This 249-nucleotide RNA sequence from Atlantisia rogersi belongs to the Rfam family "Small nucleolar RNA SNORD17". Rfam links the family to the GO terms RNA processing and nucleolus. From the family's description: The snoRNA HBI-43 belongs to the C/D family of snoRNAs, guiding 2'O-ribose methylation at position U3797 of the 28S rRNA. Pseudouridylation in position U3797 is predicted to be guided by the H/ACA snoRNA ACA48. By type it is a C/D-box small nucleolar RNA. A search with the family's covariance model found it, with a score of 118 bits.
RNA sequence: GUGAGGUGAUGAUGAAGUUUAUCCAUUCUCUGAGUUCAGUGGUGCUGCUCUCCUGCAGCACCCCGAUUCCUGUUCUAGGGUCUGGGUGCUGUGCAGCUUCCAGAGACUCUUCAGUCUCCCAGUGUUCUACUGGGAGCUGCUGUGGUGUGUGGCUGGCUGCCUGCAGGAGUGAAGCACUGCUGGCAGGGUCGGAGCCCCUCUUUUGGGGGGGCUCUGUCCUUACUGAGAUGAGGGAUGCUGUCUGAUCAC
Numbered sequence: 001g002u003g004a005g006g007u008g009a010u011g012a013u014g015a016a017g018u019u020u021a022u023c024c025a026u027u028c029u030c031u032g033a034g035u036u037c038a039g040u041g042g043u044g045c046u047g048c049u050c051u052c053c054u055g056c057a058g059c060a061c062c063c064c065g066a067u068u069c070c071u072g073u074u075c076u077a078g079g080g081u082c083u084g085g086g087u088g089c090u091g092u093g094c095a096g097c098u099u100c101c102a103g104a105g106a107c108u109c110u111u112c113a114g115u116c117u118c119c120c121a122g123u124g125u126u127c128u129a130c131u132g133g134g135a136g137c138u139g140c141u142g143u144g145g146u147g148u149g150u151g152g153c154u155g156g157c158u159g160c161c162u163g164c165a166g167g168a169g170u171g172a173a174g175c176a177c178u179g180c181u182g183g184c185a186g187g188g189u190c191g192g193a194g195c196c197c198c199u200c201u202u203u204u205g206g207g208g209g210g211g212c213u214c215u216g217u218c219c220u221u222a223c224u225g226a227g228a229u230g231a232g233g234g235a236u237g238c239u240g241u242c243u244g245a246u247c248a249c
Stems, first nucleotide, its partner, number of pairs: 010248004017241002023234002026232003030227002034223002039184002042181001043179002046176003049172002051168007059088005065082001068080004093160006106146002112139003116136009186220003190216004195211006